[Rfam]
RNA sequence: GUGCAUCCAGUAGGAAUUGAACCUACGACAAUUAUGAGUUGGACGCUUUAACCGUUCAGCCAUGGAUGC
Numbered sequence: 001g002u003g004c005a006u007c008c009a010g011u012a013g014g015a016a017u018u019g020a021a022c023c024u025a026c027g028a029c030a031a032u033u034a035u036g037a038g039u040u041g042g043a044c045g046c047u048u049u050a051a052c053c054g055u056u057c058a059g060c061c062a063u064g065g066a067u068g069c
Stems, first nucleotide, its partner, number of pairs: 003069006010026005034063003038060008
RNA: Plastid-ycf2 5UTR RNA
Organism: Anisodus acutangulus